[Rfam]
RNA sequence: CCUGGUCCGUGAUGACCCCUCUUGGGAGACGGUUGGAUGAAUCCUGCGGAUAUGGGGCUGAGGCCGGGC
Dot-bracket structure: (((((..........................................................))))).
Numbered sequence: 001c002c003u004g005g006u007c008c009g010u011g012a013u014g015a016c017c018c019c020u021c022u023u024g025g026g027a028g029a030c031g032g033u034u035g036g037a038u039g040a041a042u043c044c045u046g047c048g049g050a051u052a053u054g055g056g057g058c059u060g061a062g063g064c065c066g067g068g069c
Stems, first nucleotide, its partner, number of pairs: 001068005